Annotation:
Shown here is a 529-nucleotide part of an RNA from Cryptomonas paramaecium, a member of the family "Eukaryotic large subunit ribosomal RNA". The sequence is in the family's curated seed alignment. NCBI's taxonomy places the organism under Eukaryota, Cryptophyceae, Cryptomonadales, Cryptomonadaceae, Cryptomonas.

RNA sequence: GAAGACCCUGUUGAGCUUGACUCUAGUCUGGUUUUGUAAAAUAAGUCAAGAGGUGUAGUAUAGGUGGGAGCCGUGUUAUUUGUUUACAAAAAAUAAGCAAGUACCAUGGCGCCAGUGAAAUACCACCACUCUCGAUCUUGUUUUACUUACUCUUUUUUUAGCCAUAUAAUAUUUGGUAUUGCUUUUUGUGUGUUGUUGUUUUUUUCUAAAACAAGUAAACUCAAAUAAACAAAAGUGAAUUGGAGGACAGUGUCAGAUGGGGAGUUUGGCUGGGGCGGCACAUCUGCUAAAAGAUAACGCAGGUGUCCUAAGAUGAGCUCAACGAGAACAGAAAUCUCGUGUAGAGUAAAAGGGUAAAAGCUCAUUUGAUUUCGAUUUUCAGUAUGAAUCCGAACUGUGAAAGCAUGGCCUAUCGAUCCUUUAAGAUUUCAAAGUAUGAAGCUAGAGGUGUCAGAAAAGUUACCACAGGGAUAACUGGCUUGUGGCAGCCAAGCGUUCAUAGCGACGUUGCUUUUUGAUCCUUCGAUGU
Number, nucleotide and partner (000 for none) at each position: 001g000002a000003a000004g000005a000006c000007c469008c468009u467010g466011u000012u465013g464014a461015g460016c459017u458018u457019g000020a265021c264022u263023c262024u000025a000026g000027u257028c256029u255030g254031g253032u252033u000034u000035u000036g146037u145038a144039a143040a142041a141042u140043a139044a138045g137046u135047c134048a000049a132050g131051a130052g129053g000054u000055g000056u000057a000058g000059u000060a000061u000062a000063g127064g126065u125066g124067g123068g000069a000070g110071c109072c108073g107074u106075g105076u000077u000078a000079u000080u000081u000082g000083u000084u000085u000086a000087c000088a000089a000090a000091a000092a000093a000094u000095a000096a000097g000098c000099a000100a000101g000102u000103a000104c000105c075106a074107u073108g072109g071110c070111g000112c000113c000114a000115g000116u000117g000118a000119a000120a000121u000122a000123c067124c066125a065126c064127c063128a000129c052130u051131c050132u049133c000134g047135a046136u000137c045138u044139u043140g042141u041142u040143u039144u038145a037146c036147u000148u000149a000150c245151u244152c243153u242154u000155u000156u000157u000158u000159u000160a000161g236162c235163c000164a000165u000166a000167u000168a180169a179170u178171a177172u176173u000174u000175g000176g172177u171178a170179u169180u168181g000182c000183u000184u000185u000186u000187u000188g000189u000190g000191u000192g000193u000194u000195g000196u000197u231198g230199u229200u228201u227202u000203u000204u000205u000206c000207u000208a000209a000210a000211a000212c000213a000214a000215g000216u000217a000218a000219a000220c000221u000222c000223a000224a000225a000226u000227a201228a200229a199230c198231a197232a000233a000234a000235g162236u161237g000238a000239a000240u000241u000242g153243g152244a151245g150246g000247a000248c000249a000250g000251u000252g032253u031254c030255a029256g028257a027258u000259g000260g000261g000262g023263a022264g021265u020266u000267u000268g281269g279270c278271u277272g000273g000274g000275g000276c000277g271278g270279c269280a000281c268282a304283u303284c302285u301286g300287c299288u000289a000290a000291a000292a000293g000294a000295u000296a000297a000298c000299g287300c286301a285302g284303g283304u282305g000306u000307c408308c407309u000310a000311a000312g000313a365314u364315g363316a362317g361318c360319u345320c344321a000322a340323c339324g338325a337326g336327a335328a000329c000330a000331g000332a000333a000334a000335u327336c326337u325338c324339g323340u322341g000342u000343a000344g320345a319346g355347u354348a000349a000350a000351a000352g000353g000354g347355u346356a000357a000358a000359a000360g318361c317362u316363c315364a314365u313366u000367u000368g000369a000370u394371u393372u392373c000374g390375a389376u388377u387378u386379u000380c000381a000382g000383u000384a000385u000386g378387a377388a376389u375390c374391c000392g372393a371394a370395c000396u405397g404398u403399g000400a000401a000402a000403g398404c397405a396406u000407g308408g307409c000410c000411u000412a000413u000414c000415g000416a000417u000418c000419c447420u446421u445422u444423a443424a000425g000426a000427u441428u440429u439430c438431a000432a000433a000434g000435u000436a000437u000438g430439a429440a428441g427442c000443u423444a422445g421446a420447g419448g000449u000450g000451u000452c000453a000454g000455a000456a000457a018458a017459g016460u015461u014462a000463c000464c013465a012466c010467a009468g008469g007470g000471a000472u000473a000474a000475c000476u000477g000478g519479c000480u517481u000482g516483u000484g512485g511486c510487a509488g508489c507490c000491a000492a000493g503494c502495g000496u000497u000498c000499a000500u000501a000502g494503c493504g000505a000506c000507g489508u488509u487510g486511c485512u484513u000514u000515u000516u482517g480518a000519u478520c000521c000522u000523u000524c000525g000526a000527u000528g000529u000